The family of this 104-nucleotide RNA from Sphingomonas carotinifaciens is "Glycine riboswitch aptamer". The organism belongs to Sphingomonas, within Bacteria. Gene Ontology term of the family: glycine biosynthetic process. The match comes from Rfam's covariance-model search (66 bits).
RNA sequence: UGGGUACGCGCGGGAGAGCGCCUCUCGGCCUUUCAGGCCGGUGCGAGGCCGCCGAAGGAGCAACCACCCCGGAAUCUCUCAGGCCAAAGGACCGCGCGGGCCAU
Numbered sequence: 001u002g003g004g005u006a007c008g009c010g011c012g013g014g015a016g017a018g019c020g021c022c023u024c025u026c027g028g029c030c031u032u033u034c035a036g037g038c039c040g041g042u043g044c045g046a047g048g049c050c051g052c053c054g055a056a057g058g059a060g061c062a063a064c065c066a067c068c069c070c071g072g073a074a075u076c077u078c079u080c081a082g083g084c085c086a087a088a089g090g091a092c093c094g095c096g097c098g099g100g101c102c103a104u
Stems, first nucleotide, its partner, number of pairs: 007098007020049004051084003054080002058078003064072002